Shown here is a 117-nucleotide sequence from Nonomuraea longispora, a member of the family "Actinobacteria sRNA Ms_IGR-7".
The family has 14 seed sequences and 463 matches in Rfam 15.1.
It is annotated as a small RNA.
A search with the family's covariance model found it, with a score of 54 bits.
For this family Rfam cites "Identification of small RNAs in Mycobacterium smegmatis using heterologous Hfq" (Li et al., RNA, 2013).
The source organism's lineage runs through Bacteria, Bacillati, Actinomycetota, Actinomycetes and Nonomuraea.
[Rfam]
RNA sequence: ACGAGGUGUCCUUUGCAGCGGGCCGAUGGAAGCGUGAAGAACUCCCAUCCUCCCAGCUCAAGGGACACCUCACUUCAUUUCGCCAAUCUCGCCCCAAGCUUCAAGCUGUGGAUCCAG
Numbered sequence: 001a002c003g004a005g006g007u008g009u010c011c012u013u014u015g016c017a018g019c020g021g022g023c024c025g026a027u028g029g030a031a032g033c034g035u036g037a038a039g040a041a042c043u044c045c046c047a048u049c050c051u052c053c054c055a056g057c058u059c060a061a062g063g064g065a066c067a068c069c070u071c072a073c074u075u076c077a078u079u080u081c082g083c084c085a086a087u088c089u090c091g092c093c094c095c096a097a098g099c100u101u102c103a104a105g106c107u108g109u110g111g112a113u114c115c116a117g
Stems, first nucleotide, its partner, number of pairs: 003071011017058001019056001021053002025049003029045001031043002098114001100112004